[Rfam]
RNA: Bacterial RNase P class A
Organism: Rhodobacter sp. SGA-6-6
RNA sequence: GCGGAUGGCCGGAUGACCGCGGCCCCGGACUUGAUCCGGGGGCGAGGAAAGUCCGGACUCCAUGAGGCAAGGGUGCCGGGUAACGCCCGGCGGGGGCGACCCCAGGGAAAGCGCCACAGAGAAGAGACAGCCCCGGUUCGCCGGGGUGAUGGUGAAACGGUGGGGCAAGAGCCCACCGCGGGACGGGCAACCGGACCGGCACGGCAAGCCCCACCCGGAGCAAUGCCGAAUAGGGGCCUCGCGCGGGGCUGGUCCUGAAAGGGAUACCGCCGCAGGGAUGCUUCAGCCCGAGAGGCCCGGGUUGGCAGCUGGACCCCCUCCGCAAGGCGGGGGCUAGAGGAAUGGUCAUCCAUGGCGGGCAACCGCCGGGACAGAAUCCGGCUUACAGGCCAUCCGCGCGU
Numbered sequence: 001g002c003g004g005a006u007g008g009c010c011g012g013a014u015g016a017c018c019g020c021g022g023c024c025c026c027g028g029a030c031u032u033g034a035u036c037c038g039g040g041g042g043c044g045a046g047g048a049a050a051g052u053c054c055g056g057a058c059u060c061c062a063u064g065a066g067g068c069a070a071g072g073g074u075g076c077c078g079g080g081u082a083a084c085g086c087c088c089g090g091c092g093g094g095g096g097c098g099a100c101c102c103c104a105g106g107g108a109a110a111g112c113g114c115c116a117c118a119g120a121g122a123a124g125a126g127a128c129a130g131c132c133c134c135g136g137u138u139c140g141c142c143g144g145g146g147u148g149a150u151g152g153u154g155a156a157a158c159g160g161u162g163g164g165g166c167a168a169g170a171g172c173c174c175a176c177c178g179c180g181g182g183a184c185g186g187g188c189a190a191c192c193g194g195a196c197c198g199g200c201a202c203g204g205c206a207a208g209c210c211c212c213a214c215c216c217g218g219a220g221c222a223a224u225g226c227c228g229a230a231u232a233g234g235g236g237c238c239u240c241g242c243g244c245g246g247g248g249c250u251g252g253u254c255c256u257g258a259a260a261g262g263g264a265u266a267c268c269g270c271c272g273c274a275g276g277g278a279u280g281c282u283u284c285a286g287c288c289c290g291a292g293a294g295g296c297c298c299g300g301g302u303u304g305g306c307a308g309c310u311g312g313a314c315c316c317c318c319u320c321c322g323c324a325a326g327g328c329g330g331g332g333g334c335u336a337g338a339g340g341a342a343u344g345g346u347c348a349u350c351c352a353u354g355g356c357g358g359g360c361a362a363c364c365g366c367c368g369g370g371a372c373a374g375a376a377u378c379c380g381g382c383u384u385a386c387a388g389g390c391c392a393u394c395c396g397c398g399c400g401u
Stems, first nucleotide, its partner, number of pairs: 001397010011386001012350007020044002023041006049384003053381005058220004066284002071216005076090005091105001092103004106211002111209002113205003128151002130147007159177006178200001179198003184193003224307004234298006275289003279285001314333005320327002